The record is a 55-nucleotide RNA sequence from Saccharothrix espanaensis, which matches "L31-Actinobacteria ribosomal protein leader" in Rfam. Lineage of the source: Bacteria > Actinomycetota > Pseudonocardiales > Pseudonocardiaceae > Saccharothrix espanaensis. Clan: Ribosomal Protein L31 Leader clan.
RNA sequence: CCGGCUCCGGUUCACCUCACCCGUGGUUCCCGCAACCACCGAGGACCCGGCGGCC
Numbered sequence: 001c002c003g004g005c006u007c008c009g010g011u012u013c014a015c016c017u018c019a020c021c022c023g024u025g026g027u028u029c030c031c032g033c034a035a036c037c038a039c040c041g042a043g044g045a046c047c048c049g050g051c052g053g054c055c
Stems, first nucleotide, its partner, number of pairs: 003055003007050004015044004023039006